[Rfam]
RNA: ASpks TB sRNA
Organism: Streptomyces chumphonensis
RNA sequence: CUUGAUCGAGCCCAGGUACAGCGGCGCGUCCCCCCGUUCCCGGCCGUAGGUGGCCAGCAGCGCCUGGGCCUC
Dot-bracket structure: ..............(.(.....).).....(((.((...(.(.(((....))).).)...))...)))....